Shown here is a 61-nucleotide RNA sequence from Allosphingorhabdus lutea, a member of the family "terC RNA". Taxonomically the source falls in Allosphingorhabdus (Bacteria, Pseudomonadati, Pseudomonadota, Alphaproteobacteria).
[Rfam]
RNA sequence: UUCGCGGACCGGGCCCCUCUGGCGAUGGCGGAAUUUCCCCCUCGUGAUGUCGGCCGCAUCG
Numbered sequence: 001u002u003c004g005c006g007g008a009c010c011g012g013g014c015c016c017c018u019c020u021g022g023c024g025a026u027g028g029c030g031g032a033a034u035u036u037c038c039c040c041c042u043c044g045u046g047a048u049g050u051c052g053g054c055c056g057c058a059u060c061g
Base pairs, nucleotide, nucleotide: 006055007054009053010052011051012050022045023044024043025042027040028039